RNA sequence: AAGCGAUUCCAAAAUUCCGGAUGCCCAGGCAGGCUGGGAAAAGGCAUUCACCACGGCCCUCGCUGCAAUGGGGGGUAACAACUACAUUCAUCAUGCUG
Numbered sequence: 001a002a003g004c005g006a007u008u009c010c011a012a013a014a015u016u017c018c019g020g021a022u023g024c025c026c027a028g029g030c031a032g033g034c035u036g037g038g039a040a041a042a043g044g045c046a047u048u049c050a051c052c053a054c055g056g057c058c059c060u061c062g063c064u065g066c067a068a069u070g071g072g073g074g075g076u077a078a079c080a081a082c083u084a085c086a087u088u089c090a091u092c093a094u095g096c097u098g
Stems, first nucleotide, its partner, number of pairs: 003010001023030001031060003075096001077094001
Annotation
A member of the RNA family "Pyrrolysine insertion sequence mttB" from Olavius sp. associated proteobacterium Delta 1, 98 nucleotides long. A reference for the family is Theil Have et al. (2013), "Effects of using coding potential, sequence conservation and mRNA structure conservation for predicting pyrroly-sine containing genes", BMC Bioinformatics. Rfam classes the family as a cis-regulatory element.